Rfam assigns this 150-nucleotide sequence from Giardia duodenalis to the family "Small nucleolar RNA GlsR22". The literature on the family includes a 2012 paper in Nucleic Acids Res by Hudson et al., "Evolutionarily divergent spliceosomal snRNAs and a conserved non-coding RNA processing motif in Giardia lamblia".

RNA sequence: GUCAAUUCUAUCGUAUUUUUUUGAUAGCCUGAGACGCAAGCCCUCUAGCAAGAUGCAGGCCGGAGUCUGUGCCUCGUUCCCUGGGGCGAUAGCUCUUGCUGGCAGGUCUUGCAGUGUCCAUGCUUGGGCAACACGUUCUCCAGCUAUACC
Number, nucleotide and partner (000 for none) at each position: 001g000002u000003c000004a000005a000006u000007u000008c000009u000010a000011u000012c000013g000014u000015a000016u000017u000018u000019u000020u000021u000022u000023g000024a000025u000026a145027g144028c143029c000030u000031g000032a000033g137034a136035c135036g112037c111038a110039a109040g108041c000042c106043c105044u104045c102046u101047a100048g099049c098050a097051a000052g073053a000054u071055g070056c069057a068058g067059g066060c065061c000062g000063g000064a000065g060066u059067c058068u057069g056070u055071g054072c000073c052074u089075c088076g087077u086078u085079c084080c000081c000082u000083g000084g079085g078086g077087c076088g075089a074090u000091a000092g000093c000094u000095c000096u000097u050098g049099c048100u047101g046102g045103c000104a044105g043106g042107u000108c040109u039110u038111g037112c036113a000114g000115u130116g129117u128118c127119c126120a000121u000122g000123c000124u000125u000126g119127g118128g117129c116130a115131a000132c000133a000134c000135g035136u034137u033138c000139u000140c000141c000142a000143g028144c027145u026146a000147u000148a000149c000150c000